RNA: Plastid-psbA-4 3UTR RNA
Organism: Adenophora stricta
RNA sequence: AGUCAAAGGAAGAAUAACGCCUUUCUUGUUCUAUCAAGAGGGCGUUUUUCUUCCU
Numbered sequence: 001a002g003u004c005a006a007a008g009g010a011a012g013a014a015u016a017a018c019g020c021c022u023u024u025c026u027u028g029u030u031c032u033a034u035c036a037a038g039a040g041g042g043c044g045u046u047u048u049u050c051u052u053c054c055u
Base pairs, nucleotide, nucleotide: 007055008054009053010052011051012050013049014048016046021042023040024039025038026037027036028035